This 74-nucleotide RNA sequence from Hermetia illucens belongs to the Rfam family "mir-965 microRNA precursor family".
On this family, see Huang et al., Bioorg Khim 2012: "The regulation of silkworm fibroin L chain production by miRNA-965 and miRNA-1926 in insect cells".
Taxonomically the source falls in Hermetia (Eukaryota, Opisthokonta, Hexapoda, Diptera).
RNA sequence: UGUUUGCGGGGCAAUGCUGUACGUUAUAUGUUAUAUUUUUGAAACCAUAAGCGUAUAGCUUUUCCCCUUUAACG
Numbered sequence: 001u002g003u004u005u006g007c008g009g010g011g012c013a014a015u016g017c018u019g020u021a022c023g024u025u026a027u028a029u030g031u032u033a034u035a036u037u038u039u040u041g042a043a044a045c046c047a048u049a050a051g052c053g054u055a056u057a058g059c060u061u062u063u064c065c066c067c068u069u070u071a072a073c074g
Stems, first nucleotide, its partner, number of pairs: 003072002006069001009066003013062002017058005024051002027049004